[Rfam]
RNA sequence: UAGGGGGGGCAGGGUUUGGAUCCCCUCCCCGAGCCCAGGGUAACCCUACGAGUGGAGGGGAA
Numbered sequence: 001u002a003g004g005g006g007g008g009g010c011a012g013g014g015u016u017u018g019g020a021u022c023c024c025c026u027c028c029c030c031g032a033g034c035c036c037a038g039g040g041u042a043a044c045c046c047u048a049c050g051a052g053u054g055g056a057g058g059g060g061a062a
Stems, first nucleotide, its partner, number of pairs: 008041001010039001012036004016031001018029002022060006

The family of this 62-nucleotide RNA sequence from Enhydra lutris is "Gag/pol translational readthrough site". The family's RNA type in Rfam is cis-regulatory element. It scores 69 bits against the family's covariance model.